[Rfam]
RNA sequence: CGAAAGUGUACCUAGGGUUCCGGAGAUUAUAAUCUUGUCUGGUCCGAGCGGUACAGGUAUUGUUGUUAUUUAAGUACAAUAUUACACCGAAGGGAUAAAAGCCCAGUCGGG
Numbered sequence: 001c002g003a004a005a006g007u008g009u010a011c012c013u014a015g016g017g018u019u020c021c022g023g024a025g026a027u028u029a030u031a032a033u034c035u036u037g038u039c040u041g042g043u044c045c046g047a048g049c050g051g052u053a054c055a056g057g058u059a060u061u062g063u064u065g066u067u068a069u070u071u072a073a074g075u076a077c078a079a080u081a082u083u084a085c086a087c088c089g090a091a092g093g094g095a096u097a098a099a100a101g102c103c104c105a106g107u108c109g110g111g
Base pairs, nucleotide, nucleotide: 007055008054009053010052011051012050015045016044020042021041022039023036024035025034026033027032056083057082058081059080060079061078062077063076085106087109092104093103094102
Guanidine-I riboswitch aptamer: a 111-nucleotide RNA from Keratinibaculum paraultunense. Rfam 15.1 lists 1,509 matches to the family in 1,281 species. The base pairs follow the family's consensus structure. The match comes from Rfam's covariance-model search (68 bits). This family represents a conserved RNA structure found upstream of the ykkC and yxkD genes in Bacillus subtilis and related genes in other bacteria.